The record is a 135-nucleotide RNA from Chanos chanos, which matches "Small nucleolar RNA SNORA68" in Rfam. The family has 26 seed sequences and 1,079 matches in Rfam 15.1. Rfam classes the family as an H/ACA-box small nucleolar RNA. U68 is a member of the H/ACA class of small nucleolar RNAs (snoRNAs) which act as guides in the the modification of uridines to pseudouridines. The source organism's lineage runs through Eukaryota, Osteoglossocephalai, Clupeocephala, Anotophysi and Chanos.
[Rfam]
RNA sequence: UUAGCACCCAAAACCCAAAGAUCAUACCGAUGCACUGUGAUGUGAUCUUGCCUGGUGUGCUGAAAGAAAUGUGUACCUUGUCGCCUUUCGGAUGCUGAUUUGUGCUCUCGAAAGUGAAAUCAAGGUUCUACACCG
Number, nucleotide and partner (000 for none) at each position: 001u000002u062003a061004g060005c059006a058007c057008c000009c055010a000011a000012a000013a000014c000015c000016c000017a000018a000019a000020g047021a046022u045023c044024a043025u042026a041027c000028c039029g038030a000031u000032g000033c000034a000035c000036u000037g000038u029039g028040a000041u026042g025043u024044g023045a022046u021047c020048u000049u000050g000051c000052c000053u000054g000055g009056u000057g007058u006059g005060c004061u003062g002063a000064a000065a000066g000067a000068a000069a000070u000071g000072u000073g128074u000075a126076c125077c124078u123079u122080g000081u000082c000083g000084c000085c114086u113087u112088u111089c110090g109091g108092a000093u000094g105095c104096u000097g000098a000099u000100u000101u000102g000103u000104g095105c094106u000107c000108u091109c090110g089111a088112a087113a086114g085115u000116g000117a000118a000119a000120u000121c000122a079123a078124g077125g076126u075127u000128c073129u000130a000131c000132a000133c000134c000135g000